This 95-nucleotide RNA from Roseinatronobacter ekhonensis belongs to the Rfam family "TPP riboswitch aptamer (THI element)". NCBI's taxonomy places the organism under Bacteria, Pseudomonadati, Rhodobacterales, Paracoccaceae, Roseinatronobacter. Pairs were carried over by alignment from the consensus structure, which is taken from published work. The match comes from Rfam's covariance-model search (66 bits).
[Rfam]
RNA sequence: GGGUUGCGACAGGGGCGUCCGUGCGAGCGGGCUGAGAAGUACCCUUUGAACCUGAACCAGAUCAUGCUGGCGUAGGGAGUCCGUGAAGGUGCUUU
Numbered sequence: 001g002g003g004u005u006g007c008g009a010c011a012g013g014g015g016c017g018u019c020c021g022u023g024c025g026a027g028c029g030g031g032c033u034g035a036g037a038a039g040u041a042c043c044c045u046u047u048g049a050a051c052c053u054g055a056a057c058c059a060g061a062u063c064a065u066g067c068u069g070g071c072g073u074a075g076g077g078a079g080u081c082c083g084u085g086a087a088g089g090u091g092c093u094u095u
Base pairs, nucleotide, nucleotide: 008081009080010079011045012044013043014042016039017032018031019030020029021028051076052075053074054073057070058069059068060067